[Rfam]
This 51-nucleotide RNA belongs to the Rfam family "eL15-Euryarchaeota ribosomal protein leader".
RNA sequence: CGGACCAUCAGAGUCCGUUGGGAUGUGGCCCAUAUUGGGCUGAACCGUAAA
Numbered sequence: 001c002g003g004a005c006c007a008u009c010a011g012a013g014u015c016c017g018u019u020g021g022g023a024u025g026u027g028g029c030c031c032a033u034a035u036u037g038g039g040c041u042g043a044a045c046c047g048u049a050a051a
Base pairs, nucleotide, nucleotide: 001017002016003015004014005013019047020046021045027041028040029039030038031037
Description: The family's RNA type in Rfam is cis-regulatory leader. The literature on the family includes a 2020 paper in BMC Microbiol by Eckert and Weinberg, "Discovery of 20 novel ribosomal leader candidates in bacteria and archaea".